The family of this 97-nucleotide sequence is "Rhodo-rpoB RNA". Rfam's curators put it in the seed alignment.
[Rfam]
RNA sequence: CGGUACGAGAGCAGGGCCGAUGGGAGGCCCUUGCGAGAAUAGACCAUGAUCCGGUUCGCGUGUGCGGCGUAUUGCUGUGGCCCCGACAGCCAAUGCA
Numbered sequence: 001c002g003g004u005a006c007g008a009g010a011g012c013a014g015g016g017c018c019g020a021u022g023g024g025a026g027g028c029c030c031u032u033g034c035g036a037g038a039a040u041a042g043a044c045c046a047u048g049a050u051c052c053g054g055u056u057c058g059c060g061u062g063u064g065c066g067g068c069g070u071a072u073u074g075c076u077g078u079g080g081c082c083c084c085g086a087c088a089g090c091c092a093a094u095g096c097a
Stems, first nucleotide, its partner, number of pairs: 002045003006042001011034003014030005069096004074090004